Shown here is a 118-nucleotide RNA sequence from Triticum turgidum, a member of the family "Small nucleolar RNA snoR104". The family's consensus secondary structure was predicted with WAR. By type it is an H/ACA-box small nucleolar RNA. The family has 8 seed sequences and 612 matches in Rfam 15.1.
RNA sequence: UGGUGGAAUUCAAAGGACAGCAUGUCUACCUAAUACAAUCUUCCUAAAGUGAUACUUUCAUUUCCUGCUUGUGGUGUCAUUACGAAGUUCUGCAAGUCUGAGAUGAGAAAACAUACAU
Numbered sequence: 001u002g003g004u005g006g007a008a009u010u011c012a013a014a015g016g017a018c019a020g021c022a023u024g025u026c027u028a029c030c031u032a033a034u035a036c037a038a039u040c041u042u043c044c045u046a047a048a049g050u051g052a053u054a055c056u057u058u059c060a061u062u063u064c065c066u067g068c069u070u071g072u073g074g075u076g077u078c079a080u081u082a083c084g085a086a087g088u089u090c091u092g093c094a095a096g097u098c099u100g101a102g103a104u105g106a107g108a109a110a111a112c113a114u115a116c117a118u
Stems, first nucleotide, its partner, number of pairs: 002030002005027001006025001008023002011020001056111003067097008076088002